[Rfam]
Shown here is an 85-nucleotide sequence from Pelosinus fermentans, a member of the family "c-di-GMP-I riboswitch aptamer".
RNA sequence: GUAAAUAUUUGGCAAACCUGUCGAAAGAUGGGGACGCAAAGCUAUGGGUCUAAGGACGGAGGUCUAUGAUUGCCAGGUUGCCGUU
Numbered sequence: 001g002u003a004a005a006u007a008u009u010u011g012g013c014a015a016a017c018c019u020g021u022c023g024a025a026a027g028a029u030g031g032g033g034a035c036g037c038a039a040a041g042c043u044a045u046g047g048g049u050c051u052a053a054g055g056a057c058g059g060a061g062g063u064c065u066a067u068g069a070u071u072g073c074c075a076g077g078u079u080g081c082c083g084u085u
Stems, first nucleotide, its partner, number of pairs: 012037002017032006040079004045075003048070003055064003